[Rfam]
RNA sequence: AAGCAGUGAGGAAAAUUCCGCCCGAACGCUGGCAGUAGGGUCUGUCACACUCGUCUGAUCUCCCUGGGACGAAGCUGUGGGGCGUUCUGAGCUU
Dot-bracket structure: ((((......................................................................................))))
A member of the RNA family "small nucleolar RNA snoR114" from Carnegiea gigantea, 94 nucleotides long. A search with the family's covariance model found it, with a score of 50 bits. It is annotated as a C/D-box small nucleolar RNA. The source organism's lineage runs through Eukaryota, Spermatophyta, Mesangiospermae, Caryophyllales and Carnegiea.